[Rfam]
RNA sequence: AGAAUAACGGAGAGUCAAUAUGUCUCUUCGUUGAAAAGAGCUUGGAGGUAUAGCGAAAUGGGCGAGAUAUCGUUUCAGUCGUCACUUUAUCGAAUUGACGAUUCGAUUGUUGCUCGUCUAUAU
Dot-bracket structure: ....(((((..(((.((...)).)))..)))))..........................((.((((..((((.....(((((((.((.....)).))))))).)))).....)))).))....